RNA sequence: GCGGAUCUCACUUCACUACGGAUCGUCCGGCACGUGCCUGCCGGUGAAGGAGAACCGA
Numbered sequence: 001g002c003g004g005a006u007c008u009c010a011c012u013u014c015a016c017u018a019c020g021g022a023u024c025g026u027c028c029g030g031c032a033c034g035u036g037c038c039u040g041c042c043g044g045u046g047a048a049g050g051a052g053a054a055c056c057g058a
Stems, first nucleotide, its partner, number of pairs: 009050001011049005027044006

Overview:
msiK RNA: a 58-nucleotide RNA from Pseudofrankia inefficax. The family has 120 seed sequences and 1,374 matches in Rfam 15.1. The family's consensus secondary structure is taken from published work. Rfam classes the family as a cis-regulatory element. Lineage of the source: Bacteria > Actinomycetota > Actinomycetes > Frankiaceae > Pseudofrankia. It scores 55 bits against the family's covariance model.